RNA sequence: CAUAGUAGCAGCGUUAGUCGGGUUAGAACCCCGACGGCCGAACGAGCAAGGGUUCCUCGGCAAUGCUGAUCAGCCGAGGGUUAGCCGAUCCUAAGUCUCACCGUAAGUCGAAUGAGACAACAGGGAAACUGGUUAAUAUUCCAGUGCCAUCAUGCAGUGAAACCGACGCUUUGGGGUCGCCUGAGCCGGGCUAUCGCCCGGUCGAACCGUCAAACUCCGUGGACGCCGUAAUGGCAGGAAGCGGACGAACGGCGGGAUAGGGAAACUCAGGUCAACCUAGAGCCCGUGAAAAGGGAGCAUGAUGUUCGUACCAAGAACCGACACAGGUGCUCGUGGCGGCGAAAGCCAAGGCCUGU
Dot-bracket structure: ................((((((.......))))))((((....((((..((...((((((...((.....)).))))))......(((.((...((((((.((.....))..))))))....))...(((((........)))))..((((((((.......((...((((((((...(((((.(((((........)))))....((((.....(((((...((((.....))).)...)))))......)))).....(....).)))))...)))))))).........))..)))))))).)))..)).....((......)).)))).((((.......)))).))))...
This 356-nucleotide part of an RNA from Halostella sp. JP-L12 belongs to the Rfam family "Archaeal large subunit ribosomal RNA".